[Rfam]
RNA sequence: GCGUUUUGCAAAUUCGCAGGCCCUAUCUUGUGGUAUGAACUGAGUACGCGAUGAUUUAUCCUGCGUAUUGGGGGCUUACCAUAAGAUAAAGCCGUGAAUUUGCAAAACGU
Numbered sequence: 001g002c003g004u005u006u007u008g009c010a011a012a013u014u015c016g017c018a019g020g021c022c023c024u025a026u027c028u029u030g031u032g033g034u035a036u037g038a039a040c041u042g043a044g045u046a047c048g049c050g051a052u053g054a055u056u057u058a059u060c061c062u063g064c065g066u067a068u069u070g071g072g073g074g075c076u077u078a079c080c081a082u083a084a085g086a087u088a089a090a091g092c093c094g095u096g097a098a099u100u101u102g103c104a105a106a107a108c109g110u
Stems, first nucleotide, its partner, number of pairs: 002109015019093003024088012037075001040072002043069004048064003
MIR1428 microRNA precursor family: a 110-nucleotide RNA from Oryza sativa. NCBI's taxonomy places the organism under Eukaryota, Streptophytina, Euphyllophyta, Oryzoideae, Oryza. Rfam links the family to the GO terms RISC complex and miRNA-mediated post-transcriptional gene silencing. On this family, see Xue et al., Nucleic Acids Res 2009: "Characterization and expression profiles of miRNAs in rice seeds".